[Rfam]
RNA sequence: UGGAAAUGAUGAAAUAGAGAUAAUUGGGUGUUGAAUGUUGUAUGACUGGAGAUUUUUAAUAUGUUAGUUAAGUAGUUCUUAGGUUAUUUUAUAGAUACCUAAGAGAGAGUGUGUGCAUGUGUGUGUGCUUGUGGUGGCUACGGAAAGGGGGCACUGACUGGUGAUGCUGAUAUUGGAGUGCAUCUGAGGCUGUUGUAGAAAUAACAUGGUCUGUUGAUUACAACAUUGCCGAUGAUUAUAACCCAAGAACAGCUCACCUAACUAGCCCAGCACCCUAAAGUCUCUAACAGGUUCAUUAAACAUGGUCCUGUGAUCUGAUCCAA
Dot-bracket structure: ((((..........................................................................................................................................................................................((((((((.((((........))))..)))))))).............................................................................................)))).
Rfam assigns this 323-nucleotide RNA sequence from Carlito syrichta to the family "Small Cajal body-specific RNA 7". A search with the family's covariance model found it, with a score of 366 bits. On this family, see Darzacq et al., EMBO J 2002: "Cajal body-specific small nuclear RNAs: a novel class of 2'-O-methylation and pseudouridylation guide RNAs". The base pairs follow the family's consensus structure. The family's RNA type in Rfam is small Cajal body RNA.